[Rfam]
RNA: IS605-orfB-I RNA
RNA sequence: AUCCUAUACAGAUGUAUUCAACGCAAGAUAGUUGGGCAUCUCCCUGUAGGAUUAAGUUUAUCAGAAGUUCUGACAACAAUUUUCAUUGUGUGGCUACUACAGUCGAAAUGGGAUGAGUUAGGGUGGAAUAGGUUAAUCGUGAGACCUUGAGUUGCAAAAUUCUAAAAUUGAGCUAGGAAUAUGGGUUUCUUAAAUUUUUCUAGUCACGGUGCU
Numbered sequence: 001a002u003c004c005u006a007u008a009c010a011g012a013u014g015u016a017u018u019c020a021a022c023g024c025a026a027g028a029u030a031g032u033u034g035g036g037c038a039u040c041u042c043c044c045u046g047u048a049g050g051a052u053u054a055a056g057u058u059u060a061u062c063a064g065a066a067g068u069u070c071u072g073a074c075a076a077c078a079a080u081u082u083u084c085a086u087u088g089u090g091u092g093g094c095u096a097c098u099a100c101a102g103u104c105g106a107a108a109u110g111g112g113a114u115g116a117g118u119u120a121g122g123g124u125g126g127a128a129u130a131g132g133u134u135a136a137u138c139g140u141g142a143g144a145c146c147u148u149g150a151g152u153u154g155c156a157a158a159a160u161u162c163u164a165a166a167a168u169u170g171a172g173c174u175a176g177g178a179a180u181a182u183g184g185g186u187u188u189c190u191u192a193a194a195u196u197u198u199u200c201u202a203g204u205c206a207c208g209g210u211g212c213u
Stems, first nucleotide, its partner, number of pairs: 001052008010041006018035005023029001067124008081113007092104002095101001130147005136210006142168001149162005173203007181195002
Dot-bracket structure: ((((((((.((((((..((((((.....).)))))))))))...))))))))..............((((((((......(((((((....((.(.....).))..)))))))...)))))))).....[[[[[.(((((((]]]]].(((((....))))).....)....(((((((.((...........)).))))))).))))))...